[Rfam]
RNA sequence: GGGGGUCAUCCAAAUGCCGGGAUGUUGCCUGAUACAAUCUUCCUACAGAAAAAAACUGUUGUUUCCUACUUGUAGUACUUGAGCAAGUCCUACAAGUCUCAAAUACACACAGUGACAAGU
Numbered sequence: 001g002g003g004g005g006u007c008a009u010c011c012a013a014a015u016g017c018c019g020g021g022a023u024g025u026u027g028c029c030u031g032a033u034a035c036a037a038u039c040u041u042c043c044u045a046c047a048g049a050a051a052a053a054a055a056c057u058g059u060u061g062u063u064u065c066c067u068a069c070u071u072g073u074a075g076u077a078c079u080u081g082a083g084c085a086a087g088u089c090c091u092a093c094a095a096g097u098c099u100c101a102a103a104u105a106c107a108c109a110c111a112g113u114g115a116c117a118a119g120u
Stems, first nucleotide, its partner, number of pairs: 001030003005026001007024005055113003068097008077088003
RNA: Small nucleolar RNA snoR104